[Rfam]
RNA sequence: GUAGUUGGAUUCAUAUCAAUCCACAUGUGUUAAAGUAGAUUGGAGUAGAAUUUUUUUAAAAAAAAAUCACUCCAAUCCACACCAAAACACGUGGAUUGAAGUGAAUCCGACA
Dot-bracket structure: ...(((((((((((.(((((((((.(((.((...((.((((((.((......................)).)))))).))...)).))).))))))))).))))))))))).

Rfam assigns this 112-nucleotide RNA sequence from Sorghum bicolor to the family "MIR5565 microRNA precursor family". The family's consensus secondary structure was predicted with RNAalifold. The source organism's lineage runs through Eukaryota, Streptophytina, Poaceae, Andropogonodae and Sorghum. Its family is annotated with RISC complex and miRNA-mediated post-transcriptional gene silencing in the Gene Ontology.